[Rfam]
The record is a 120-nucleotide RNA from Neogobius melanostomus, which matches "Small nucleolar RNA SNORD94" in Rfam. Rfam links the family to the GO terms RNA processing and nucleolus. A search with the family's covariance model found it, with a score of 64 bits. By type it is a C/D-box small nucleolar RNA.
RNA sequence: GGUGCUGUGAUGAGCUGCGCAGGGGUACGGACCUCAGCUGAUGAUGGGAGCUGAGUCUGUUCUGUUUCAGAGACUGAGGUCACUGGCGGAAACAGACGAGAUGACGCACGACUGAGCACC
Numbered sequence: 001g002g003u004g005c006u007g008u009g010a011u012g013a014g015c016u017g018c019g020c021a022g023g024g025g026u027a028c029g030g031a032c033c034u035c036a037g038c039u040g041a042u043g044a045u046g047g048g049a050g051c052u053g054a055g056u057c058u059g060u061u062c063u064g065u066u067u068c069a070g071a072g073a074c075u076g077a078g079g080u081c082a083c084u085g086g087c088g089g090a091a092a093c094a095g096a097c098g099a100g101a102u103g104a105c106g107c108a109c110g111a112c113u114g115a116g117c118a119c120c
Stems, first nucleotide, its partner, number of pairs: 001120005